RNA sequence: UUCAUCUCACGUGACUGGCGAAGUGGCCAUAUCUGCCCUGUUAGACGGGCAAGCAUCCUGGCCCAAGAUGGAGAUCCAUCGGGAAGCGUGAGAUUUCGGAGUCUAUCUGACUCCAGCCGUGCGCCUGGGUAGCCUGA
Number, nucleotide and partner (000 for none) at each position: 001u000002u000003c000004a094005u093006c092007u091008c090009a089010c088011g087012u086013g000014a000015c083016u082017g125018g124019c123020g122021a000022a000023g000024u000025g000026g000027c000028c000029a000030u000031a000032u000033c000034u000035g000036c000037c000038c000039u000040g000041u000042u000043a000044g000045a000046c000047g000048g000049g000050c000051a000052a000053g000054c000055a000056u000057c000058c000059u000060g000061g000062c000063c000064c000065a000066a000067g000068a079069u078070g077071g076072a000073g000074a000075u000076c071077c070078a069079u068080c000081g000082g016083g015084a000085a000086g012087c011088g010089u009090g008091a007092g006093a005094u004095u000096u000097c000098g000099g000100a000101g000102u000103c000104u000105a000106u000107c000108u000109g000110a000111c000112u000113c000114c132115a000116g130117c129118c128119g000120u000121g000122c020123g019124c018125c017126u000127g000128g118129g117130u116131a000132g114133c000134c000135u000136g000137a000